[Rfam]
RNA sequence: UCUCAUUUAAACAAUGCAAUCCCUACCGACUAUUACAUCCUUGUAGCCCUAAAGCUACGCCAGUGUGAUUAAAUUUCAUUAAAAUAGA
Numbered sequence: 001u002c003u004c005a006u007u008u009a010a011a012c013a014a015u016g017c018a019a020u021c022c023c024u025a026c027c028g029a030c031u032a033u034u035a036c037a038u039c040c041u042u043g044u045a046g047c048c049c050u051a052a053a054g055c056u057a058c059g060c061c062a063g064u065g066u067g068a069u070u071a072a073a074u075u076u077c078a079u080u081a082a083a084a085u086a087g088a
Stems, first nucleotide, its partner, number of pairs: 036067002040063002042059006
This 88-nucleotide RNA from Vagococcus zengguangii belongs to the Rfam family "BsrC". The base pairs follow the family's consensus structure, which was predicted with CMfinder. From the family's description: The 301 nucleotide sequence from Kouji Nakamura has been trimmed to a highly conserved ~85 nucleotide long core to form this family. The literature on the family includes a 2008 paper in Gene by Saito et al., "Novel small RNA-encoding genes in the intergenic regions of Bacillus subtilis". The family's RNA type in Rfam is small RNA. Lineage of the source: Bacteria > Bacillati > Bacillota > Lactobacillales > Vagococcus. Rfam 15.1 lists 572 matches to the family in 553 species.